[Rfam]
RNA sequence: CCGAAGAGCAACCGCUCGCUCGGAUACUGACCUCGGUACCUGACACGGCCGGGGCAG
Dot-bracket structure: ((((.(((......)))..))))...(((.(((((((..........))))))))))